[Rfam]
RNA sequence: AGGCAGUGAUGAGUAAAUCGAGAUAGUCAUGCACCACUCUGAUGAUUUUUAGUGCUGAGAAUUUCUCUUACCAUAUUUCUUCUGAGCCU
Numbered sequence: 001a002g003g004c005a006g007u008g009a010u011g012a013g014u015a016a017a018u019c020g021a022g023a024u025a026g027u028c029a030u031g032c033a034c035c036a037c038u039c040u041g042a043u044g045a046u047u048u049u050u051a052g053u054g055c056u057g058a059g060a061a062u063u064u065c066u067c068u069u070a071c072c073a074u075a076u077u078u079c080u081u082c083u084g085a086g087c088c089u
Stems, first nucleotide, its partner, number of pairs: 001089004

Small nucleolar RNA Z221/R21b: an 89-nucleotide RNA sequence from Brassica oleracea. Its family is annotated with RNA processing and nucleolus in the Gene Ontology. The source organism's lineage runs through Eukaryota, Streptophytina, Embryophyta, Mesangiospermae and Brassica oleracea. By type it is a C/D-box small nucleolar RNA.